TPP riboswitch aptamer (THI element): a 102-nucleotide RNA from Porphyromonas macacae.
RNA sequence: CAGAGGAUUGAGGGGUGCCGCUGACCAUGAAUAGCGGCUGAGAUUAAACCCUUGGCACCUGAACCGGGUCAUACCGGCGUAGGAACGAUUCCUAAUCUCACA
Numbered sequence: 001c002a003g004a005g006g007a008u009u010g011a012g013g014g015g016u017g018c019c020g021c022u023g024a025c026c027a028u029g030a031a032u033a034g035c036g037g038c039u040g041a042g043a044u045u046a047a048a049c050c051c052u053u054g055g056c057a058c059c060u061g062a063a064c065c066g067g068g069u070c071a072u073a074c075c076g077g078c079g080u081a082g083g084a085a086c087g088a089u090u091c092c093u094a095a096u097c098u099c100a101c102a
Base pairs, nucleotide, nucleotide: 006090007089008088009087010086011052012051013050014049016046017038018037019036020035021034022033023032058083059082060081061080064077065076066075067074
It scores 70 bits against the family's covariance model. Rfam links the family to the GO term thiamine pyrophosphate binding.